[Rfam]
mir-9256 microRNA precursor family: a 67-nucleotide sequence from Pipistrellus kuhlii. Pairs were carried over by alignment from the consensus structure, which was predicted with RNAalifold.
RNA sequence: GGAUACAUUGAGUGGCCAGAUUAUUAUGAUCUCGGAACACAUAAUAAUCUGGCCGCUCAGUGUAUAU
Numbered sequence: 001g002g003a004u005a006c007a008u009u010g011a012g013u014g015g016c017c018a019g020a021u022u023a024u025u026a027u028g029a030u031c032u033c034g035g036a037a038c039a040c041a042u043a044a045u046a047a048u049c050u051g052g053c054c055g056c057u058c059a060g061u062g063u064a065u066a067u
Stems, first nucleotide, its partner, number of pairs: 004064014019049010